[Rfam]
Nucleotides: 080
Base pairs, nucleotide, nucleotide: 009072010071011070012069013068020034021033022032023031036059037058038057039055040054043053044052045051
Number, partner (000 for none) and nucleotide at each position: 001000u002000u003000u004000u005000g006000a007000a008000a009072c010071u011070c012069u013068g014000g015000a016000g017000a018000g019000c020034g021033g022032c023031g024000u025000c026000a027000a028000c029000a030000g031023c032022g033021c034020c035000c036059a037058c038057c039055g040054a041000u042000g043053g044052g045051g046000c047000a048000a049000a050000u051045c052044u053043c054040u055039c056000a057038g058037g059036u060000a061000u062000c063000g064000a065000g066000g067000a068013c069012a070011g071010a072009g073000g074000g075000g076000u077000g078000a079000a080000a
Rfam assigns this 80-nucleotide RNA from Dechloromonas sp. HYN0024 to the family "Glycine riboswitch aptamer". The literature on the family includes a 2004 paper in Science by Mandal et al., "A glycine-dependent riboswitch that uses cooperative binding to control gene expression". Taxonomically the source falls in Dechloromonas (Bacteria, Betaproteobacteria, Rhodocyclales, Azonexaceae). A search with the family's covariance model found it, with a score of 54 bits.